[Rfam]
RNA sequence: AAUAUCCUUCGGGGCAGGGUGAAAUUCCCUACCGACGGUGAUGGUGCCUAAGGCACCUUAGUCCGUGACCCGCGGGGGUUCUCUAUUUAGAGAUCCUGCGGCUGAGCCGGUGCAAUUCCGGGACCGACAGUUAUAGUCUGGAUGGGAGAAGGAGAUA
Dot-bracket structure: ..(.((((((......(((.......))).[[((((((......................[[))))...((((((((................)))))))).....((((.......)))).]])).(((.....]]))).......)))))).)..
Numbered sequence: 001a002a003u004a005u006c007c008u009u010c011g012g013g014g015c016a017g018g019g020u021g022a023a024a025u026u027c028c029c030u031a032c033c034g035a036c037g038g039u040g041a042u043g044g045u046g047c048c049u050a051a052g053g054c055a056c057c058u059u060a061g062u063c064c065g066u067g068a069c070c071c072g073c074g075g076g077g078g079u080u081c082u083c084u085a086u087u088u089a090g091a092g093a094u095c096c097u098g099c100g101g102c103u104g105a106g107c108c109g110g111u112g113c114a115a116u117u118c119c120g121g122g123a124c125c126g127a128c129a130g131u132u133a134u135a136g137u138c139u140g141g142a143u144g145g146g147a148g149a150a151g152g153a154g155a156u157a
Stems, first nucleotide, its partner, number of pairs: 003155001005153006017029003031137002033126002035066004061124002070101008107121004128140003

FMN riboswitch aptamer (RFN element): a 157-nucleotide RNA sequence from Paenibacillus sp. CAA11. From the family's description: The RFN element is a highly conserved domain that is found frequently in the 5'-untranslated regions of prokaryotic mRNAs that encode for flavin mononucleotide (FMN) biosynthesis and transport proteins. The source organism's lineage runs through Bacteria, Bacillati, Caryophanales, Paenibacillaceae and Paenibacillus. It scores 107 bits against the family's covariance model.